[Rfam]
RNA sequence: CUUUUGGUUCCUCGCAAUGGUAUUUGGUUCAUCGGGUCAGGUUCGGAAGAAAGCAGCCCAAGUCAAAUUUCCGUGUGCCGAGAUCAAGCUGGG
Number, nucleotide and partner (000 for none) at each position: 001c000002u000003u000004u092005u091006g090007g089008u088009u000010c000011c082012u081013c080014g079015c075016a000017a074018u073019g072020g071021u000022a069023u067024u066025u065026g064027g063028u062029u061030c000031a000032u000033c000034g059035g058036g057037u056038c000039a000040g000041g000042u051043u050044c049045g000046g000047a000048a000049g044050a043051a042052a000053g000054c000055a000056g037057c036058c035059c034060a000061a029062g028063u027064c026065a025066a024067a023068u000069u022070u000071c020072c019073g018074u017075g015076u000077g000078c000079c014080g013081a012082g011083a000084u000085c000086a000087a000088g008089c007090u006091g005092g004093g000

This 93-nucleotide RNA from Chelonobacter oris belongs to the Rfam family "Bacterial small signal recognition particle RNA". About the family: The signal recognition particle (SRP) is a universally conserved ribonucleoprotein involved in the co-translational targeting of proteins to membranes. The organism belongs to Chelonobacter, within Bacteria.